RNA sequence: UCUCAUGCUGUGACCCUCUAAAGGGCAGCACUUCCUGUUGUCUGAAAAAAAAGAAAAUGCUGCCUUUUAGAGUGUCACCAUUUGAGA
Numbered sequence: 001u002c003u004c005a006u007g008c009u010g011u012g013a014c015c016c017u018c019u020a021a022a023g024g025g026c027a028g029c030a031c032u033u034c035c036u037g038u039u040g041u042c043u044g045a046a047a048a049a050a051a052a053g054a055a056a057a058u059g060c061u062g063c064c065u066u067u068u069a070g071a072g073u074g075u076c077a078c079c080a081u082u083u084g085a086g087a
Base pairs, nucleotide, nucleotide: 001087002086003085004084005083007081010078011077012076013075014074016072017071018070020068021067022066023065024064025063026062027061028060029059030058032056033055035053038052039051